RNA: Histone 3' UTR stem-loop
Organism: Cotesia typhae
RNA sequence: AAAAUGGUUCUUUUCAGAACCACCACAUUUUUCAAUACGUAAUAAA
Numbered sequence: 001a002a003a004a005u006g007g008u009u010c011u012u013u014u015c016a017g018a019a020c021c022a023c024c025a026c027a028u029u030u031u032u033c034a035a036u037a038c039g040u041a042a043u044a045a046a
Base pairs, nucleotide, nucleotide: 006021007020008019009018010017011016